RNA sequence: CCCGCGGUUAGACGAAGAGACCCCGUGCACCUUUACUAUAGCUUUAUAUUGCUAUUAAAAAUGUAAUGUGCAGGAUAGGUGGGAGGCUUUGAAGUUAUGGCGCUAGCUGUAAUGGAGUCGACCUUGAGAUACCACCCUUUACACUUUUGAUAUCUAACUAUGUUUCAUUAUCUGGAACUAGGACAUUGUAUGGUGGGUAGUUUGACUGGGGCGGUCGCCUCCUAAAAGGUAACGGAGGCGUGCGAAGGUAAGCUAGAGCUGGUCGGAAAUCAGCUUAAUAGUAUAAUGGCACAAGCUUGCCUGACUGCGAGGCUGACAAGCCAAGCAGAGACGAAAGUCGGUCAUAGUGAUCCGGUGAUUCUGUAUGGAAGGGUCAUCGCUCAACGGAUAAAAGGUACGCCGGGAUAACAGGCUGAUGGUGUUCAAGAGUUCAUAUCGACGACACCGUUUGGCACCUCGAUGUCGACUCAUCACAUCCUGGGGCUGAAGAAGGUCCCAAGGGUUCGGCUGUUCGCCGAUUAAAGUGAUACGUGAGUUGGGUUUAGAACGUCGUGAGACAGUUCGGUUUCUAUCUGCCGUGGGUGAA
Numbered sequence: 001c002c003c004g005c006g007g008u009u010a011g012a013c014g015a016a017g018a019g020a021c022c023c024c025g026u027g028c029a030c031c032u033u034u035a036c037u038a039u040a041g042c043u044u045u046a047u048a049u050u051g052c053u054a055u056u057a058a059a060a061a062u063g064u065a066a067u068g069u070g071c072a073g074g075a076u077a078g079g080u081g082g083g084a085g086g087c088u089u090u091g092a093a094g095u096u097a098u099g100g101c102g103c104u105a106g107c108u109g110u111a112a113u114g115g116a117g118u119c120g121a122c123c124u125u126g127a128g129a130u131a132c133c134a135c136c137c138u139u140u141a142c143a144c145u146u147u148u149g150a151u152a153u154c155u156a157a158c159u160a161u162g163u164u165u166c167a168u169u170a171u172c173u174g175g176a177a178c179u180a181g182g183a184c185a186u187u188g189u190a191u192g193g194u195g196g197g198u199a200g201u202u203u204g205a206c207u208g209g210g211g212c213g214g215u216c217g218c219c220u221c222c223u224a225a226a227a228g229g230u231a232a233c234g235g236a237g238g239c240g241u242g243c244g245a246a247g248g249u250a251a252g253c254u255a256g257a258g259c260u261g262g263u264c265g266g267a268a269a270u271c272a273g274c275u276u277a278a279u280a281g282u283a284u285a286a287u288g289g290c291a292c293a294a295g296c297u298u299g300c301c302u303g304a305c306u307g308c309g310a311g312g313c314u315g316a317c318a319a320g321c322c323a324a325g326c327a328g329a330g331a332c333g334a335a336a337g338u339c340g341g342u343c344a345u346a347g348u349g350a351u352c353c354g355g356u357g358a359u360u361c362u363g364u365a366u367g368g369a370a371g372g373g374u375c376a377u378c379g380c381u382c383a384a385c386g387g388a389u390a391a392a393a394g395g396u397a398c399g400c401c402g403g404g405a406u407a408a409c410a411g412g413c414u415g416a417u418g419g420u421g422u423u424c425a426a427g428a429g430u431u432c433a434u435a436u437c438g439a440c441g442a443c444a445c446c447g448u449u450u451g452g453c454a455c456c457u458c459g460a461u462g463u464c465g466a467c468u469c470a471u472c473a474c475a476u477c478c479u480g481g482g483g484c485u486g487a488a489g490a491a492g493g494u495c496c497c498a499a500g501g502g503u504u505c506g507g508c509u510g511u512u513c514g515c516c517g518a519u520u521a522a523a524g525u526g527a528u529a530c531g532u533g534a535g536u537u538g539g540g541u542u543u544a545g546a547a548c549g550u551c552g553u554g555a556g557a558c559a560g561u562u563c564g565g566u567u568u569c570u571a572u573c574u575g576c577c578g579u580g581g582g583u584g585a586a
Stems, first nucleotide, its partner, number of pairs: 001582008010574003014569002022404004027400002029396005035201004042193002045190004051154001053152008062143005068137001078136005085119003094113008158181003162178006204216004217239006240385001242342002248300006254280002257275006281290002305328004311322003330339003353379007361372002412453003416450001417447007427437002464539001465537004469531001470528005477502002480497006504518005545563004549558003
Background:
Shown here is a 586-nucleotide part of an RNA, a member of the family "Bacterial large subunit ribosomal RNA". Its family is annotated with structural constituent of ribosome and ribosome in the Gene Ontology. The literature on the family includes a 2001 paper in Science by Yusupov et al., "Crystal structure of the ribosome at 5.5 A resolution".